The family of this 33-nucleotide sequence from Muribaculaceae bacterium Isolate-080 is "DUF805b RNA". Taxonomically the source falls in Muribaculaceae (Bacteria, Pseudomonadati, Bacteroidia, Bacteroidales). Pairs were carried over by alignment from the consensus structure, which is taken from published work. The match comes from Rfam's covariance-model search (36 bits). It is annotated as a cis-regulatory element.
[Rfam]
RNA sequence: GGCGCGGAAGCCGAAAAGCGUAAUGAGUAGGCA
Numbered sequence: 001g002g003c004g005c006g007g008a009a010g011c012c013g014a015a016a017a018g019c020g021u022a023a024u025g026a027g028u029a030g031g032c033a
Base pairs, nucleotide, nucleotide: 002021003020004019005018010032011031012030